RNA sequence: GGGUGUGAGGGCGAUCUAGCUGCGACAUCUGUCACCCCAUUGAUCGCCAGGGUUAGUUCAGCUGAUCUGGCUGGCUAGGCGGGGGUCCCCUUCCUCCCUCAAGGAUCCAUGUGCGUCCCUCCAAAAGCUGCGCGCUUGGUCAAAGAGGACGACCAUGACCACCCAGAUAGAGGAGGACCGUUCCUCGGUCAAGGGUAUACGAGCAGCUGUGCUCCCCUGCUAGAACCUCGAAACAAGCAGUCCGGGCCCCUUUGUAGGAGAACAUAGGGUAGUCAAGCUUCCAAGACUCCAGAUGCAUCCAAAUGAGGCACUGCAUGGGCAGUCUGCCUUUCUUA
Numbered sequence: 001g002g003g004u005g006u007g008a009g010g011g012c013g014a015u016c017u018a019g020c021u022g023c024g025a026c027a028u029c030u031g032u033c034a035c036c037c038c039a040u041u042g043a044u045c046g047c048c049a050g051g052g053u054u055a056g057u058u059c060a061g062c063u064g065a066u067c068u069g070g071c072u073g074g075c076u077a078g079g080c081g082g083g084g085g086u087c088c089c090c091u092u093c094c095u096c097c098c099u100c101a102a103g104g105a106u107c108c109a110u111g112u113g114c115g116u117c118c119c120u121c122c123a124a125a126a127g128c129u130g131c132g133c134g135c136u137u138g139g140u141c142a143a144a145g146a147g148g149a150c151g152a153c154c155a156u157g158a159c160c161a162c163c164c165a166g167a168u169a170g171a172g173g174a175g176g177a178c179c180g181u182u183c184c185u186c187g188g189u190c191a192a193g194g195g196u197a198u199a200c201g202a203g204c205a206g207c208u209g210u211g212c213u214c215c216c217c218u219g220c221u222a223g224a225a226c227c228u229c230g231a232a233a234c235a236a237g238c239a240g241u242c243c244g245g246g247c248c249c250c251u252u253u254g255u256a257g258g259a260g261a262a263c264a265u266a267g268g269g270u271a272g273u274c275a276a277g278c279u280u281c282c283a284a285g286a287c288u289c290c291a292g293a294u295g296c297a298u299c300c301a302a303a304u305g306a307g308g309c310a311c312u313g314c315a316u317g318g319g320c321a322g323u324c325u326g327c328c329u330u331u332c333u334u335a
Stems, first nucleotide, its partner, number of pairs: 001108003006101006013093002019089001024087003028083006035074002037070003042067004046062002116176002118173004122139001124137002127135002140167002147163002206278003212272002215269005227260003233255005302334002305330005310323005
Dot-bracket structure: (((..((((((.((....(....(((.((((((.(((((..((((((.............)).)))))))..))...)))))).))).)..))..))))))....))).......(((((((.((.((.....)))).)((.....((.............))..))..)))).)).............................(((...((.(((((.......(((...(((((.............)))))..)))....))))).))...))).......................((.((((((((((....)))))..)))))..)).
RNA: 7SK RNA